[Rfam]
Notes
The record is a 65-nucleotide sequence from Chinchilla lanigera, which matches "Z6 small nucleolar RNA" in Rfam. The family's consensus secondary structure was predicted with PFOLD. A reference for the family is Galardi et al. (2002), "Purified box C/D snoRNPs are able to reproduce site-specific 2'-O-methylation of target RNA in vitro", Mol Cell Biol. Rfam links the family to the GO terms RNA processing and nucleolus.

RNA sequence: UGCUGGUGGUGAAGCGGCCCCUCUCGGAGCUCUGGGCCUUGCCGGGGGUAAGACGGGUGGAAGCA
Number, nucleotide and partner (000 for none) at each position: 001u065002g064003c063004u062005g000006g000007u000008g000009g000010u000011g000012a000013a000014g000015c000016g000017g000018c000019c000020c000021c000022u000023c000024u000025c000026g000027g000028a000029g000030c000031u000032c000033u000034g000035g000036g000037c000038c000039u000040u000041g000042c000043c000044g000045g000046g000047g000048g000049u000050a000051a000052g000053a000054c000055g000056g000057g000058u000059g000060g000061a000062a004063g003064c002065a001